[Rfam]
RNA sequence: GGGCUAAUGAUGAUAAAUCUAAUUAUCUUAGCGGAUUUCAGUGAGAUGUAUUUCAAUGAUCUGAUUGUUACACACACUGAAGCCC
Numbered sequence: 001g002g003g004c005u006a007a008u009g010a011u012g013a014u015a016a017a018u019c020u021a022a023u024u025a026u027c028u029u030a031g032c033g034g035a036u037u038u039c040a041g042u043g044a045g046a047u048g049u050a051u052u053u054c055a056a057u058g059a060u061c062u063g064a065u066u067g068u069u070a071c072a073c074a075c076a077c078u079g080a081a082g083c084c085c
Base pairs, nucleotide, nucleotide: 001085002084003083004082005081